The family of this 89-nucleotide sequence is "Clostridiales-2 RNA". Rfam's curators put it in the seed alignment.
[Rfam]
Nucleotides: 089
Stems, first nucleotide, its partner, number of pairs: 015036002018034006055077005
Number, partner (000 for none) and nucleotide at each position: 001000a002000u003000a004000a005000a006000a007000c008000g009000a010000g011000g012000a013000u014000u015036g016035c017000a018034a019033a020032g021031g022030a023029c024000g025000g026000a027000a028000c029023g030022u031021c032020c033019u034018u035016g036015c037000c038000g039000u040000u041000a042000a043000g044000u045000g046000g047000g048000g049000u050000g051000c052000u053000c054000a055077g056076u057075a058074a059073a060000a061000a062000u063000g064000c065000g066000u067000u068000a069000g070000c071000a072000u073059u074058u075057u076056a077055c078000g079000c080000c081000g082000a083000a084000g085000g086000g087000g088000g089000a